[Rfam]
RNA sequence: AAGUCUUAUACUAAGAAUUGCUUUCGAAGCUUACAAACGAACUAGAACUUAUUUGGUUAUCAUAUUGCUUUGGGGAAAGUCUCCGGUCAAAAGCGGAAACGUAUUGAGUUCAUUCUACUCUUUGAGUUACUGAAAUUACGACUUGGUUAUGAAAUUAGUGAUUCAAUGACAUGCAGUGAUGAAGACGUUUUUGACUGUUUAUUUUAUGUUGCUUCCUUUGUAUAACGAAGCCUGUGACUAUCGUUUACGAUUUUUACUGUUAUCGUUAGAUAAAGCAUAAUUUAAUCAACAGAAUUAUUUUCUUUCGACUUUAGUUGAUCAUUGCUUGGAAGCGGUUGUCUAAUUUUGUUUCCUAUAAGUAGUGUUUUCAUUGACUUCGUUCUUUCGGGAAUAAGUUUUCGACGUUGAGUGUUCAUUGAACGCACUCAGACGAUAGUUAUGCAAUUGCCUCGUAGAUAUUAUACUUGUAUUAUAUCUCUUGGUACCACAAUGGAGCUUACUUGGUAUAAGACU
Numbered sequence: 001a002a003g004u005c006u007u008a009u010a011c012u013a014a015g016a017a018u019u020g021c022u023u024u025c026g027a028a029g030c031u032u033a034c035a036a037a038c039g040a041a042c043u044a045g046a047a048c049u050u051a052u053u054u055g056g057u058u059a060u061c062a063u064a065u066u067g068c069u070u071u072g073g074g075g076a077a078a079g080u081c082u083c084c085g086g087u088c089a090a091a092a093g094c095g096g097a098a099a100c101g102u103a104u105u106g107a108g109u110u111c112a113u114u115c116u117a118c119u120c121u122u123u124g125a126g127u128u129a130c131u132g133a134a135a136u137u138a139c140g141a142c143u144u145g146g147u148u149a150u151g152a153a154a155u156u157a158g159u160g161a162u163u164c165a166a167u168g169a170c171a172u173g174c175a176g177u178g179a180u181g182a183a184g185a186c187g188u189u190u191u192u193g194a195c196u197g198u199u200u201a202u203u204u205u206a207u208g209u210u211g212c213u214u215c216c217u218u219u220g221u222a223u224a225a226c227g228a229a230g231c232c233u234g235u236g237a238c239u240a241u242c243g244u245u246u247a248c249g250a251u252u253u254u255u256a257c258u259g260u261u262a263u264c265g266u267u268a269g270a271u272a273a274a275g276c277a278u279a280a281u282u283u284a285a286u287c288a289a290c291a292g293a294a295u296u297a298u299u300u301u302c303u304u305u306c307g308a309c310u311u312u313a314g315u316u317g318a319u320c321a322u323u324g325c326u327u328g329g330a331a332g333c334g335g336u337u338g339u340c341u342a343a344u345u346u347u348g349u350u351u352c353c354u355a356u357a358a359g360u361a362g363u364g365u366u367u368u369c370a371u372u373g374a375c376u377u378c379g380u381u382c383u384u385u386c387g388g389g390a391a392u393a394a395g396u397u398u399u400c401g402a403c404g405u406u407g408a409g410u411g412u413u414c415a416u417u418g419a420a421c422g423c424a425c426u427c428a429g430a431c432g433a434u435a436g437u438u439a440u441g442c443a444a445u446u447g448c449c450u451c452g453u454a455g456a457u458a459u460u461a462u463a464c465u466u467g468u469a470u471u472a473u474a475u476c477u478c479u480u481g482g483u484a485c486c487a488c489a490a491u492g493g494a495g496c497u498u499a500c501u502u503g504g505u506a507u508a509a510g511a512c513u
Stems, first nucleotide, its partner, number of pairs: 002513010016446006024073007040058007077498003081495004093102003106120004362423003368419003372415002378411003395405002398402001448482002452478001
RNA: RNase MRP